[Rfam]
RNA sequence: GGGUGGUACAUCAUGUCGGAUGCAUCAGGACAGCAGCGAAGGUCGGGCCGCCUCG
Numbered sequence: 001g002g003g004u005g006g007u008a009c010a011u012c013a014u015g016u017c018g019g020a021u022g023c024a025u026c027a028g029g030a031c032a033g034c035a036g037c038g039a040a041g042g043u044c045g046g047g048c049c050g051c052c053u054c055g
Stems, first nucleotide, its partner, number of pairs: 005026003009022004037055003041052003
RNA: nhaA-I RNA
Organism: Lampropedia aestuarii